[Rfam]
RNA sequence: CCCAGAGGUAUUGAUAGGUGAUGUCAGCCAAUUUCAGCUGAACUCAAGCAUUACACCAGCCUGCGCGGAUGCGCAGGUUUUUUUU
Numbered sequence: 001c002c003c004a005g006a007g008g009u010a011u012u013g014a015u016a017g018g019u020g021a022u023g024u025c026a027g028c029c030a031a032u033u034u035c036a037g038c039u040g041a042a043c044u045c046a047a048g049c050a051u052u053a054c055a056c057c058a059g060c061c062u063g064c065g066c067g068g069a070u071g072c073g074c075a076g077g078u079u080u081u082u083u084u085u
Stems, first nucleotide, its partner, number of pairs: 017057004024041005059078008
A member of the RNA family "OmrA-B family" from Mangrovibacter sp. MFB070, 85 nucleotides long. The match comes from Rfam's covariance-model search (75 bits). By type it is a small RNA. The family has 23 seed sequences and 153 matches in Rfam 15.1. Taxonomically the source falls in Mangrovibacter (Bacteria, Pseudomonadati, Gammaproteobacteria, Enterobacterales).